The family of this 82-nucleotide RNA sequence from [Clostridium] polysaccharolyticum is "ZMP/ZTP riboswitch aptamer (pfl RNA motif)".
[Rfam]
RNA sequence: AACUGUCCAUACGACUGACGGAUUAGUGGAGUACCACAUGGAGUAUGGAUUCGUAAAUAAGCCGACCGUCUGGGCAAUCUAU
Numbered sequence: 001a002a003c004u005g006u007c008c009a010u011a012c013g014a015c016u017g018a019c020g021g022a023u024u025a026g027u028g029g030a031g032u033a034c035c036a037c038a039u040g041g042a043g044u045a046u047g048g049a050u051u052c053g054u055a056a057a058u059a060a061g062c063c064g065a066c067c068g069u070c071u072g073g074g075c076a077a078u079c080u081a082u
Stems, first nucleotide, its partner, number of pairs: 005050008015040001017070005026037004061075003